[Rfam]
RNA sequence: GAUUCUAAACUACCUGUUCUUUUUUGACUUCUUUUUUCUCCGAUAAACCUGGAGGCACUCUCGUUUUCGAAAGAUAAGUCAGAAACGAACAGGAAGCCUCCCAUUUGGGAGGCUUUUUUAAU
Numbered sequence: 001g002a003u004u005c006u007a008a009a010c011u012a013c014c015u016g017u018u019c020u021u022u023u024u025u026g027a028c029u030u031c032u033u034u035u036u037u038c039u040c041c042g043a044u045a046a047a048c049c050u051g052g053a054g055g056c057a058c059u060c061u062c063g064u065u066u067u068c069g070a071a072a073g074a075u076a077a078g079u080c081a082g083a084a085a086c087g088a089a090c091a092g093g094a095a096g097c098c099u100c101c102c103a104u105u106u107g108g109g110a111g112g113c114u115u116u117u118u119u120a121a122u
Stems, first nucleotide, its partner, number of pairs: 016090004021085010032074003036070002039053004054065003093116010
RNA: Phenylalanine leader peptide
Organism: Vibrio aquimaris